SAM-I/IV (S-adenosyl methionine) riboswitch aptamer: a 110-nucleotide sequence from Acidiphilium cryptum.
The source organism's lineage runs through Bacteria, Pseudomonadati, Pseudomonadota, Alphaproteobacteria and Acidiphilium cryptum.
On this family, see Weinberg et al., RNA 2008: "The aptamer core of SAM-IV riboswitches mimics the ligand-binding site of SAM-I riboswitches".
It is one of the family's seed sequences.
RNA sequence: CUUCAGCAUCAAGAGUUGGGCCGACGCCCAGCGCCAACCUGCUUCCCGAGCAAGGUGGCUUUCUUCCUUCGGAAGAAGAUGUGGCCGGUCCGGCAACUAAACGGGACAAG
Numbered sequence: 001c002u003u004c005a006g007c008a009u010c011a012a013g014a015g016u017u018g019g020g021c022c023g024a025c026g027c028c029c030a031g032c033g034c035c036a037a038c039c040u041g042c043u044u045c046c047c048g049a050g051c052a053a054g055g056u057g058g059c060u061u062u063c064u065u066c067c068u069u070c071g072g073a074a075g076a077a078g079a080u081g082u083g084g085c086c087g088g089u090c091c092g093g094c095a096a097c098u099a100a101a102c103g104g105g106a107c108a109a110g
Base pairs, nucleotide, nucleotide: 006082007081008080009079010078015032017030018029019028020027021026033059034058035057038055039054040053041051042050043049046105047104084094085093086092087091